The family of this 194-nucleotide sequence from Agrilus planipennis is "R2 RNA element". About the family: This family represents the 3' UTR region of the R2 retrotransposable element. This family is known to interact with the R2-encoded reverse transcriptase in a reaction known as target primed reverse transcription (TPRT). A reference for the family is Luan et al. (1993), "Reverse transcription of R2Bm RNA is primed by a nick at the chromosomal target site: a mechanism for non-LTR retrotransposition", Cell. A search with the family's covariance model found it, with a score of 46 bits. Pairs were carried over by alignment from the consensus structure, which is taken from published work. Gene Ontology term of the family: regulation of reverse transcription.
[Rfam]
RNA sequence: AUUUGUACAAAUCGCCUUCAUGUAGGGAUUGCAUCUGUUCUUUACAGCUGAAGAGGACACUAGUUGGUUAUACAACGGCCUGAGGUAGAGGGGUUUUAGUCGGUAGGUCCGAGGACUCCUUCCUCGGGAAUCCGACACUACCCAGUCGUACGGACGGUUGGGUGUCUUUUGAAGAUUUUCCCUCUUCCACGAAG
Numbered sequence: 001a002u003u004u005g006u007a008c009a010a011a012u013c014g015c016c017u018u019c020a021u022g023u024a025g026g027g028a029u030u031g032c033a034u035c036u037g038u039u040c041u042u043u044a045c046a047g048c049u050g051a052a053g054a055g056g057a058c059a060c061u062a063g064u065u066g067g068u069u070a071u072a073c074a075a076c077g078g079c080c081u082g083a084g085g086u087a088g089a090g091g092g093g094u095u096u097u098a099g100u101c102g103g104u105a106g107g108u109c110c111g112a113g114g115a116c117u118c119c120u121u122c123c124u125c126g127g128g129a130a131u132c133c134g135a136c137a138c139u140a141c142c143c144a145g146u147c148g149u150a151c152g153g154a155c156g157g158u159u160g161g162g163u164g165u166c167u168u169u170u171g172a173a174g175a176u177u178u179u180c181c182c183u184c185u186u187c188c189a190c191g192a193a194g
Stems, first nucleotide, its partner, number of pairs: 037058005064193002067190002084188002087185002090181003099136005108128008138164001140163005